This 127-nucleotide RNA sequence from Cottoperca gobio belongs to the Rfam family "U4atac minor spliceosomal RNA". Rfam 15.1 lists 1,648 matches to the family in 818 species. It scores 92 bits against the family's covariance model. Clan: U4 clan. From the family's description: U4atac is an essential component of the minor U12-type spliceosome complex which is required for removal of the rarer class of eukaryotic introns (AT-AC, U12-type). Gene Ontology terms of the family: spliceosomal tri-snRNP complex assembly, mRNA 5'-splice site recognition and pre-mRNA 5'-splice site binding.
[Rfam]
RNA sequence: UCUAUCCUUGUCUUGGGGUGAGUGAGCUGCUCAAUGAACGUAUAGUGAGAGUGGCCCUGCUAACACCAGAACAACAUAUUAGCAUCACCUGAGCUAACGCCCAGAUAAUGGUGCAAUUUUUGGAAAU
Numbered sequence: 001u002c003u004a005u006c007c008u009u010g011u012c013u014u015g016g017g018g019u020g021a022g023u024g025a026g027c028u029g030c031u032c033a034a035u036g037a038a039c040g041u042a043u044a045g046u047g048a049g050a051g052u053g054g055c056c057c058u059g060c061u062a063a064c065a066c067c068a069g070a071a072c073a074a075c076a077u078a079u080u081a082g083c084a085u086c087a088c089c090u091g092a093g094c095u096a097a098c099g100c101c102c103a104g105a106u107a108a109u110g111g112u113g114c115a116a117u118u119u120u121u122g123g124a125a126a127u
Stems, first nucleotide, its partner, number of pairs: 006018004022060003026055007038046002082114006089104003093100002